[Rfam]
RNA sequence: CUGUCCCCGCGUUCAAGUAAUCCAGGAUAGGCUGUGUCUCAGUUGGCCUGUUCUAGAUUACUUGCACUUGGUGUCAG
Numbered sequence: 001c002u003g004u005c006c007c008c009g010c011g012u013u014c015a016a017g018u019a020a021u022c023c024a025g026g027a028u029a030g031g032c033u034g035u036g037u038c039u040c041a042g043u044u045g046g047c048c049u050g051u052u053c054u055a056g057a058u059u060a061c062u063u064g065c066a067c068u069u070g071g072u073g074u075c076a077g
Base pairs, nucleotide, nucleotide: 002076003075005073007071008070009069011067012066014064015063016062017061018060019059020058021057022056024054025053026052027051028050029049030048031047032046033045

Shown here is a 77-nucleotide RNA sequence from Neogobius melanostomus, a member of the family "mir-26 microRNA precursor family". Its family is annotated with RISC complex and miRNA-mediated post-transcriptional gene silencing in the Gene Ontology. The family's consensus secondary structure was predicted with RNAalifold.